About this RNA:
The family of this 66-nucleotide RNA sequence from Lates calcarifer is "miR-430 microRNA precursor family".
[Rfam]
RNA sequence: AACAUUACCCUAACACAGGCACAGAAUUUGGAAAGCAGUAAGUGCUAUUUUGUUGGGGUAGUGUUG
Numbered sequence: 001a002a003c004a005u006u007a008c009c010c011u012a013a014c015a016c017a018g019g020c021a022c023a024g025a026a027u028u029u030g031g032a033a034a035g036c037a038g039u040a041a042g043u044g045c046u047a048u049u050u051u052g053u054u055g056g057g058g059u060a061g062u063g064u065u066g
Stems, first nucleotide, its partner, number of pairs: 004062008013053002015050001017048001018046005025039001027037001
Its Rfam clan is "mir-290 clan". The organism belongs to Lates, within Eukaryota. For this family Rfam cites "MicroRNAs regulate brain morphogenesis in zebrafish" (Giraldez et al., Science, 2005). The family's consensus secondary structure was predicted with RNAalifold.